[Rfam]
RNA sequence: AGGCAGCCCCUUUGUAAGAAUGAGAUGACAAAGGAGGUGUUGCUUUGCUCGGAAUAAAAUCUGUCUUUUGCUCUUCAGACUUGCUGAGAUGGGGUUUCAAAUAUCCCUUCAUUGAAGCUGGUCUAGUAGCCUAAGCACAUC
Numbered sequence: 001a002g003g004c005a006g007c008c009c010c011u012u013u014g015u016a017a018g019a020a021u022g023a024g025a026u027g028a029c030a031a032a033g034g035a036g037g038u039g040u041u042g043c044u045u046u047g048c049u050c051g052g053a054a055u056a057a058a059a060u061c062u063g064u065c066u067u068u069u070g071c072u073c074u075u076c077a078g079a080c081u082u083g084c085u086g087a088g089a090u091g092g093g094g095u096u097u098c099a100a101a102u103a104u105c106c107c108u109u110c111a112u113u114g115a116a117g118c119u120g121g122u123c124u125a126g127u128a129g130c131c132u133a134a135g136c137a138c139a140u141c
Base pairs, nucleotide, nucleotide: 002041003040004039005038007037008036009034010033011032012031013030014029015028017026065135066134067133070130071129072128077124078123079122080121081120083118084117085116088110089109
Background
A member of the RNA family "Small nucleolar RNA snoR77" from Camphora micrantha, 141 nucleotides long. Taxonomically the source falls in Camphora (Eukaryota, Embryophyta, Tracheophyta, Spermatophyta). The literature on the family includes a 2002 paper in Curr Biol by Marker et al., "Experimental RNomics: identification of 140 candidates for small non-messenger RNAs in the plant Arabidopsis thaliana". Gene Ontology terms of the family: nucleolus and RNA processing. The family's RNA type in Rfam is H/ACA-box small nucleolar RNA. The base pairs follow the family's consensus structure, which was predicted with WAR.